[Rfam]
RNA sequence: AUCUUGAAUGGGGGGCGGCGUGGAUAUAUACUCCAGCCAGAAAAGACUCAGAUUGUCUCAUGACUUUCUGACUGGCGUACAUAGCCAUCCGCU
Numbered sequence: 001a002u003c004u005u006g007a008a009u010g011g012g013g014g015g016c017g018g019c020g021u022g023g024a025u026a027u028a029u030a031c032u033c034c035a036g037c038c039a040g041a042a043a044a045g046a047c048u049c050a051g052a053u054u055g056u057c058u059c060a061u062g063a064c065u066u067u068c069u070g071a072c073u074g075g076c077g078u079a080c081a082u083a084g085c086c087a088u089c090c091g092c093u
Stems, first nucleotide, its partner, number of pairs: 002013004014093005021087003025083002029079003033075004038070006044058004
RNA: No-Known-Vector Flavivirus 3' UTR cis-acting replication element (CRE)
Organism: Orthoflavivirus montanaense